[Rfam]
RNA sequence: UGACGUUGUUUCCACUACGGAUCGUCGGGCACGUACCUGCCCGUGGAAAGGAAGUGU
Numbered sequence: 001u002g003a004c005g006u007u008g009u010u011u012c013c014a015c016u017a018c019g020g021a022u023c024g025u026c027g028g029g030c031a032c033g034u035a036c037c038u039g040c041c042c043g044u045g046g047a048a049a050g051g052a053a054g055u056g057u
Base pairs, nucleotide, nucleotide: 009049010048011047012046013045014044026043027042028041029040030039031038

This 57-nucleotide RNA from Microlunatus phosphovorus belongs to the Rfam family "msiK RNA".
Lineage of the source: Bacteria > Actinomycetota > Actinomycetes > Propionibacteriales > Microlunatus phosphovorus.
The family's consensus secondary structure is taken from published work.